RNA sequence: CCACGUCUGGAACGACGUGACCUCGACCGCACGUGCGUCUGGAGUAAUCCGGGGGUGCGGAGCUGCGAGUAAACGACCUGUGCGUAAGCACAUAAGCCUGAUGUAAAUCAGUCCCAAUCCCAUGAGCAAGAAAUGGGAAGGUUG
Numbered sequence: 001c002c003a004c005g006u007c008u009g010g011a012a013c014g015a016c017g018u019g020a021c022c023u024c025g026a027c028c029g030c031a032c033g034u035g036c037g038u039c040u041g042g043a044g045u046a047a048u049c050c051g052g053g054g055g056u057g058c059g060g061a062g063c064u065g066c067g068a069g070u071a072a073a074c075g076a077c078c079u080g081u082g083c084g085u086a087a088g089c090a091c092a093u094a095a096g097c098c099u100g101a102u103g104u105a106a107a108u109c110a111g112u113c114c115c116a117a118u119c120c121c122a123u124g125a126g127c128a129a130g131a132a133a134u135g136g137g138a139a140g141g142u143u144g
Stems, first nucleotide, its partner, number of pairs: 002019006028067004032059005038053006079092005096113001101108002119137005

A member of the RNA family "Group II catalytic intron D1-D4-7" from Polaromonas sp. JS666, 144 nucleotides long. A search with the family's covariance model found it, with a score of 55 bits. About the family: Group II introns are found in rRNA, tRNA and mRNA of organelles in fungi, plants and protists, and also in mRNA in bacteria.